[Rfam]
RNA sequence: UCCGAUGAUGAGUCUCGCUCGGCUGAUAGAUGAUGUAGGGCAUACUGGCUGAGG
Numbered sequence: 001u002c003c004g005a006u007g008a009u010g011a012g013u014c015u016c017g018c019u020c021g022g023c024u025g026a027u028a029g030a031u032g033a034u035g036u037a038g039g040g041c042a043u044a045c046u047g048g049c050u051g052a053g054g
Stems, first nucleotide, its partner, number of pairs: 002048002008043003016035002022031001024029001
The family of this 54-nucleotide RNA from Pyrococcus furiosus is "Small nucleolar RNA sR51". On this family, see Omer et al., Science 2000: "Homologs of small nucleolar RNAs in Archaea". By type it is a C/D-box small nucleolar RNA. The sequence is in the family's curated seed alignment.